[Rfam]
RNA sequence: UUAUUGUGGGGACCACCUCCGUGAGAGGUGUUGGGCAGUAGCCAGCAGAGACGACGUAGCACGCGAGUCUAGACCCCUUCGUGCAAGCCUUUCAGCAACCGUCGAAGCCAGCCAUGCCGCUUUUUUGA
Numbered sequence: 001u002u003a004u005u006g007u008g009g010g011g012a013c014c015a016c017c018u019c020c021g022u023g024a025g026a027g028g029u030g031u032u033g034g035g036c037a038g039u040a041g042c043c044a045g046c047a048g049a050g051a052c053g054a055c056g057u058a059g060c061a062c063g064c065g066a067g068u069c070u071a072g073a074c075c076c077c078u079u080c081g082u083g084c085a086a087g088c089c090u091u092u093c094a095g096c097a098a099c100c101g102u103c104g105a106a107g108c109c110a111g112c113c114a115u116g117c118c119g120c121u122u123u124u125u126u127g128a
Stems, first nucleotide, its partner, number of pairs: 006120004010113002014030006034043003045108002050103004059084003064081004
RNA: Burkholderia sRNA 39
Organism: Trinickia symbiotica